[Rfam]
RNA sequence: UUAUGGCACAGAGCUUAGCUGAUUGGUGAGCAUAGAUCUCUACUGUUCACAGUGGCUAAGUUCAGUACCUGAA
Numbered sequence: 001u002u003a004u005g006g007c008a009c010a011g012a013g014c015u016u017a018g019c020u021g022a023u024u025g026g027u028g029a030g031c032a033u034a035g036a037u038c039u040c041u042a043c044u045g046u047u048c049a050c051a052g053u054g055g056c057u058a059a060g061u062u063c064a065g066u067a068c069c070u071g072a073a
Stems, first nucleotide, its partner, number of pairs: 011063010026050007
Overview
The family of this 73-nucleotide RNA sequence from Triplophysa tibetana is "mir-27 microRNA precursor family". The literature on the family includes a 2005 paper in Genes Dev by Chen et al., "The developmental miRNA profiles of zebrafish as determined by small RNA cloning". The family's consensus secondary structure was predicted with RNAalifold. The source organism's lineage runs through Eukaryota, Teleostomi, Euteleostomi, Actinopteri and Triplophysa. Rfam 15.1 lists 1,440 matches to the family in 645 species.